[Rfam]
Shown here is a 93-nucleotide RNA from Sulfitobacter sabulilitoris, a member of the family "Rhodo-rpoB RNA".
The base pairs follow the family's consensus structure, which is taken from published work.
RNA sequence: UGGUCGGGAGGCUUCCGGUGGGACGGAGGCCAUGAAUAGACCGAAACGUAUCGUCUCGUAUGGGCGAGGUGCCGUGGCCCGACGGUAGCCUCG
Numbered sequence: 001u002g003g004u005c006g007g008g009a010g011g012c013u014u015c016c017g018g019u020g021g022g023a024c025g026g027a028g029g030c031c032a033u034g035a036a037u038a039g040a041c042c043g044a045a046a047c048g049u050a051u052c053g054u055c056u057c058g059u060a061u062g063g064g065c066g067a068g069g070u071g072c073c074g075u076g077g078c079c080c081g082a083c084g085g086u087a088g089c090c091u092c093g
Stems, first nucleotide, its partner, number of pairs: 001043005010031008065093005070087005
Rfam classes the family as a cis-regulatory element.